RNA: Vault RNA
RNA sequence: GCGCCGGUAUAGCUCAGUGGUUACUUCGUUGAACUUUCUCACUCGAGGAUACUCAGCUUCAUCCCUUCGCGGGAUCGAACCACGGGCGCUGUCCAGCGUUUUU
Numbered sequence: 001g002c003g004c005c006g007g008u009a010u011a012g013c014u015c016a017g018u019g020g021u022u023a024c025u026u027c028g029u030u031g032a033a034c035u036u037u038c039u040c041a042c043u044c045g046a047g048g049a050u051a052c053u054c055a056g057c058u059u060c061a062u063c064c065c066u067u068c069g070c071g072g073g074a075u076c077g078a079a080c081c082a083c084g085g086g087c088g089c090u091g092u093c094c095a096g097c098g099u100u101u102u103u
Stems, first nucleotide, its partner, number of pairs: 002098003006094002012087004017083004025079004